The record is an 86-nucleotide RNA from Euglena gracilis, which matches "tRNA" in Rfam.
Pairs were carried over by alignment from the consensus structure, which is taken from published work.
Rfam's curators put it in the seed alignment.
[Rfam]
RNA sequence: GGAGAAGUGUCUGAGUGGUCGAAAGAGCUCGAUUGCUAAUCGAGUGUGUCUAAUAAACACCGAGGGUUCAAAUCCCUUCUUCUCCU
Numbered sequence: 001g002g003a004g005a006a007g008u009g010u011c012u013g014a015g016u017g018g019u020c021g022a023a024a025g026a027g028c029u030c031g032a033u034u035g036c037u038a039a040u041c042g043a044g045u046g047u048g049u050c051u052a053a054u055a056a057a058c059a060c061c062g063a064g065g066g067u068u069c070a071a072a073u074c075c076c077u078u079c080u081u082c083u084c085c086u
Base pairs, nucleotide, nucleotide: 001085002084003083004082005081006080007079010026011025012024028044029043030042031041032040062078063077064076065075066074